[Rfam]
RNA sequence: UUGUCAGGUGAAAUAAUGCUUACCUGUUCCUCCUUUGGAGGGCAGAUUAGAACAUGAUGACUAGAAUUUGUAUGAUACAUAAUUAACAUCUCUGUGUAAUCAGGACCUGCGACACUCUGAUUGCUCCUGGG
Numbered sequence: 001u002u003g004u005c006a007g008g009u010g011a012a013a014u015a016a017u018g019c020u021u022a023c024c025u026g027u028u029c030c031u032c033c034u035u036u037g038g039a040g041g042g043c044a045g046a047u048u049a050g051a052a053c054a055u056g057a058u059g060a061c062u063a064g065a066a067u068u069u070g071u072a073u074g075a076u077a078c079a080u081a082a083u084u085a086a087c088a089u090c091u092c093u094g095u096g097u098a099a100u101c102a103g104g105a106c107c108u109g110c111g112a113c114a115c116u117c118u119g120a121u122u123g124c125u126c127c128u129g130g131g
Stems, first nucleotide, its partner, number of pairs: 024045003028042006074092002077089001080085001096124009
Dot-bracket structure: .......................(((.((((((...)))))))))............................((.(..(....)...).))...(((((((((...........))))))))).......
RNA: U8 small nucleolar RNA
Organism: Propithecus coquereli